[Rfam]
RNA sequence: AAAAAUUUUGGCCUUCUCUUCCCAGUUCUUCCCAAAGUUGAGAAAAGCUGGGUUGAGAGGACGGAAAAAAAAAAAA
Numbered sequence: 001a002a003a004a005a006u007u008u009u010g011g012c013c014u015u016c017u018c019u020u021c022c023c024a025g026u027u028c029u030u031c032c033c034a035a036a037g038u039u040g041a042g043a044a045a046a047g048c049u050g051g052g053u054u055g056a057g058a059g060g061a062c063g064g065a066a067a068a069a070a071a072a073a074a075a076a
Base pairs, nucleotide, nucleotide: 014059015058016057017056018055021052022051023050024049025048029044030043031042033040034039
RNA: mir-320 microRNA precursor family
Organism: Pongo abelii